[Rfam]
Shown here is a 117-nucleotide sequence from Baia soyae, a member of the family "SAM riboswitch aptamer (S box leader)".
The base pairs follow the family's consensus structure, which is taken from published work.
Its family is annotated with regulation of gene expression in the Gene Ontology.
RNA sequence: CUCUUAUCCAGAGAGGUUGAGGGACAGGCCCUAUGAUACCUCGGCAACCAGUCUGUAUGGUCAACAUACAAACAAGGUGCCAAUUCCUGCAGAGCUUUUUUGUCUGGUAGAUGAGAG
Numbered sequence: 001c002u003c004u005u006a007u008c009c010a011g012a013g014a015g016g017u018u019g020a021g022g023g024a025c026a027g028g029c030c031c032u033a034u035g036a037u038a039c040c041u042c043g044g045c046a047a048c049c050a051g052u053c054u055g056u057a058u059g060g061u062c063a064a065c066a067u068a069c070a071a072a073c074a075a076g077g078u079g080c081c082a083a084u085u086c087c088u089g090c091a092g093a094g095c096u097u098u099u100u101u102g103u104c105u106g107g108u109a110g111a112u113g114a115g116a117g
Base pairs, nucleotide, nucleotide: 001117002116003115004114005113006112007111008110013042014041015040016039017038021031022030023029025089026088027087028086043081044080045079046078048077049076052071085109090106091105092104093103
It scores 91 bits against the family's covariance model.